[Rfam]
RNA sequence: UCUGUGGAUUAGGUAGUUUCACGUUGUUGGGAAUUCAUUUUUAACACACAAGAACAUAAAACUACCUGAUUUACUCC
Numbered sequence: 001u002c003u004g005u006g007g008a009u010u011a012g013g014u015a016g017u018u019u020c021a022c023g024u025u026g027u028u029g030g031g032a033a034u035u036c037a038u039u040u041u042u043a044a045c046a047c048a049c050a051a052g053a054a055c056a057u058a059a060a061a062c063u064a065c066c067u068g069a070u071u072u073a074c075u076c077c
Stems, first nucleotide, its partner, number of pairs: 004074016023055003027051003031047001
Overview: The family of this 77-nucleotide RNA sequence from Anolis carolinensis is "mir-196 microRNA precursor family". Taxonomically the source falls in Anolis (Eukaryota, Opisthokonta, Metazoa, Deuterostomia).